The record is a 69-nucleotide RNA sequence from Rhizobium sp. LC145, which matches "S-element" in Rfam.
[Rfam]
RNA sequence: AGUCAAUAGUCUUUGGCACCGAUUUGGUGAGCUGAUUCCUUUUGCCGAUCGAAAGGUGAAAGAAAAAUG
Numbered sequence: 001a002g003u004c005a006a007u008a009g010u011c012u013u014u015g016g017c018a019c020c021g022a023u024u025u026g027g028u029g030a031g032c033u034g035a036u037u038c039c040u041u042u043u044g045c046c047g048a049u050c051g052a053a054a055g056g057u058g059a060a061a062g063a064a065a066a067a068u069g
Base pairs, nucleotide, nucleotide: 010063011062012061013060014059017058018057019056020055023053024052025051026050027049031045032044034042035041
On this family, see Venkova-Canova et al., Mol Microbiol 2004: "Two discrete elements are required for the replication of a repABC plasmid: an antisense RNA and a stem-loop structure".
From the family's description: This family represents a group of S-elements from p42d and related plasmids. The S-element has multiple functions and is believed to act as a negative regulator of repC transcription, be required for efficient replication and act as a translational enhancer of repC.
Pairs were carried over by alignment from the consensus structure, which is taken from published work.
Gene Ontology terms of the family: mRNA transcription and translation regulator activity.
It is annotated as a cis-regulatory element.